Rfam assigns this 334-nucleotide RNA from Halodesulfurarchaeum formicicum to the family "Archaeal RNase P".
Taxonomically the source falls in Halodesulfurarchaeum (Archaea, Methanobacteriati, Methanobacteriota, Halobacteria).
Its family is annotated with tRNA processing, multimeric ribonuclease P complex and ribonuclease P activity in the Gene Ontology.
[Rfam]
RNA sequence: GGUAGCGGCCGCCCGACCCCCGUGCCCCGAGUGGGCAUGAGGAAAGUCCCCCCACCGCCGGACAGGCGAUCGGGCACACGCCCGGGACGGGAGACCGUCGGGCCAUGGAACAGAAACGACACGGCUUCGCUCGACCGAUGAGGUGUGCGGAUCCGGGGCGAAAAAGGAUUCCCGAAAAAGCCCUGGAGCGACCCCACCGAGGGACGACGGCGAAGCAGCGAUGGAACGGCCACCCCUCGCCGGUGCAAGUCCGCGUGAAUGGUAGUCCGGCAGUCUGCGCGGACGCGUAGCCGAAUGUCGGGUCGAAACAGAAGGGGGCUUACGAACCGCAACC
Number, nucleotide and partner (000 for none) at each position: 001g334002g333003u332004a000005g330006c329007g328008g327009c000010c324011g323012c302013c301014c300015g299016a298017c297018c000019c000020c000021c039022g038023u037024g036025c035026c034027c033028c000029g000030a000031g000032u000033g027034g026035g025036c024037a023038u022039g021040a000041g000042g000043a000044a321045a320046g319047u000048c318049c317050c316051c315052c314053c245054a244055c243056c242057g000058c000059c000060g000061g000062a000063c000064a000065g241066g240067c239068g238069a237070u085071c084072g083073g082074g081075c000076a000077c000078a000079c000080g000081c074082c073083c072084g071085g070086g099087a098088c097089g096090g095091g000092a000093g000094a000095c090096c089097g088098u087099c086100g236101g235102g000103c000104c000105a000106u232107g231108g230109a000110a000111c000112a000113g000114a000115a000116a000117c000118g000119a000120c000121a000122c220123g219124g000125c215126u214127u213128c212129g211130c210131u209132c000133g000134a000135c000136c000137g000138a000139u000140g000141a000142g000143g197144u196145g000146u000147g000148c000149g000150g000151a000152u000153c000154c000155g000156g000157g000158g000159c000160g000161a000162a000163a000164a000165a000166g000167g000168a000169u000170u000171c000172c000173c000174g000175a000176a000177a000178a000179a000180g000181c000182c000183c000184u000185g000186g000187a000188g000189c000190g000191a000192c000193c000194c000195c000196a144197c143198c000199g000200a000201g000202g000203g000204a000205c000206g000207a000208c000209g131210g130211c129212g128213a127214a126215g125216c000217a000218g000219c123220g122221a000222u000223g000224g000225a000226a000227c000228g000229g000230c108231c107232a106233c000234c000235c101236c100237u069238c068239g067240c066241c065242g056243g055244u054245g053246c000247a000248a000249g284250u283251c282252c281253g280254c279255g278256u277257g276258a000259a000260u000261g000262g000263u000264a000265g000266u000267c000268c000269g000270g000271c000272a000273g000274u000275c000276u257277g256278c255279g254280c253281g252282g251283a250284c249285g000286c000287g000288u000289a000290g000291c000292c000293g000294a000295a000296u000297g017298u016299c015300g014301g013302g012303u000304c000305g000306a000307a000308a000309c000310a000311g000312a000313a000314g052315g051316g050317g049318g048319c046320u045321u044322a000323c011324g010325a000326a000327c008328c007329g006330c005331a000332a003333c002334c001
Clan: RNaseP clan. Ribonuclease P (RNase P) is a ubiquitous endoribonuclease, found in archaea, bacteria and eukarya as well as chloroplasts and mitochondria. Its best characterised activity is the generation of mature 5'-ends of tRNAs by cleaving the 5'-leader elements of precursor-tRNAs. The literature on the family includes a 1999 paper in Nucleic Acids Res by Brown, "The Ribonuclease P Database".